[Rfam]
RNA sequence: GGCUGGGGGGAUUCCUGGCAGAGUGAUUUGGUUCUGAUGUCAUGUAAAUCACAUUGCCAGGGAUUUCCAACCAGCC
Numbered sequence: 001g002g003c004u005g006g007g008g009g010g011a012u013u014c015c016u017g018g019c020a021g022a023g024u025g026a027u028u029u030g031g032u033u034c035u036g037a038u039g040u041c042a043u044g045u046a047a048a049u050c051a052c053a054u055u056g057c058c059a060g061g062g063a064u065u066u067c068c069a070a071c072c073a074g075c076c
Stems, first nucleotide, its partner, number of pairs: 001076002004073003009068002011064011023052007